[Rfam]
RNA: sul1 RNA
Organism: Agrobacterium albertimagni
RNA sequence: CACGGACCCGCCACGGCGGGUGGCUUCUCCGGGCGCCUAUCCCCCGGCCACAA
Numbered sequence: 001c002a003c004g005g006a007c008c009c010g011c012c013a014c015g016g017c018g019g020g021u022g023g024c025u026u027c028u029c030c031g032g033g034c035g036c037c038u039a040u041c042c043c044c045c046g047g048c049c050a051c052a053a
Base pairs, nucleotide, nucleotide: 006021007020008019009018010017011016029047030046031045032044033043